[Rfam]
The record is a 100-nucleotide RNA from Domibacillus iocasae, which matches "Purine riboswitch aptamer" in Rfam. About the family: Riboswitches are metabolite binding domains within certain messenger RNAs that serve as precision sensors for their corresponding targets. The family's consensus secondary structure is taken from published work.

RNA sequence: GUAGAUGACAAUAAAGCACCUCAUAUAAUAGCGGGAAUAUGGCUCGCGAGUUUCUACCGGCUGCCGUAAACGGCCGACUAUGGGGGAGAGCAUUCGGCAU
Numbered sequence: 001g002u003a004g005a006u007g008a009c010a011a012u013a014a015a016g017c018a019c020c021u022c023a024u025a026u027a028a029u030a031g032c033g034g035g036a037a038u039a040u041g042g043c044u045c046g047c048g049a050g051u052u053u054c055u056a057c058c059g060g061c062u063g064c065c066g067u068a069a070a071c072g073g074c075c076g077a078c079u080a081u082g083g084g085g086g087a088g089a090g091c092a093u094u095c096g097g098c099a100u
Stems, first nucleotide, its partner, number of pairs: 019085007029049001031047005058076006